The record is an 84-nucleotide RNA sequence from Anaerocolumna jejuensis, which matches "c-di-GMP-I riboswitch aptamer" in Rfam. The organism belongs to Anaerocolumna jejuensis, within Bacteria. Gene Ontology term of the family: cyclic-di-GMP binding.
[Rfam]
RNA sequence: GAAUAAGAUGAGCAUAACUGCCCAAAGGCAGUGACGCAAAGCUAUAGGGCCUAAGCCUUACAGGUAUGGCAGCCAGUUGCAAUU
Number, nucleotide and partner (000 for none) at each position: 001g000002a000003a000004u000005a000006a000007g000008a000009u000010g000011a000012g037013c036014a000015u000016a000017a032018c031019u030020g029021c028022c027023c000024a000025a000026a000027g022028g021029c020030a019031g018032u017033g000034a000035c000036g013037c012038a000039a000040a078041g077042c076043u075044a000045u000046a000047g074048g073049g070050c069051c068052u000053a000054a000055g000056c064057c063058u062059u000060a000061c000062a058063g057064g056065u000066a000067u000068g051069g050070c049071a000072g000073c048074c047075a043076g042077u041078u040079g000080c000081a000082a000083u000084u000